The family of this 83-nucleotide RNA from Caenorhabditis briggsae is "mir-57 microRNA precursor family".
The source organism's lineage runs through Eukaryota, Chromadorea, Rhabditida, Rhabditomorpha and Caenorhabditis.
[Rfam]
RNA sequence: CUGAGUUCGUCUACCCUGUAGAUCGAGCUGUGUGUUCUGAAGUAUCAUACACGAGCUAGACUACUAGGUGAACGAUGGAAUGG
Numbered sequence: 001c002u003g004a005g006u007u008c009g010u011c012u013a014c015c016c017u018g019u020a021g022a023u024c025g026a027g028c029u030g031u032g033u034g035u036u037c038u039g040a041a042g043u044a045u046c047a048u049a050c051a052c053g054a055g056c057u058a059g060a061c062u063a064c065u066a067g068g069u070g071a072a073c074g075a076u077g078g079a080a081u082g083g
Base pairs, nucleotide, nucleotide: 012070013069014068015067018064019063020062021061023060024059026057027056028055029054031053032052033051034050035049039045
The family has 6 seed sequences and 50 matches in Rfam 15.1. The sequence is in the family's curated seed alignment.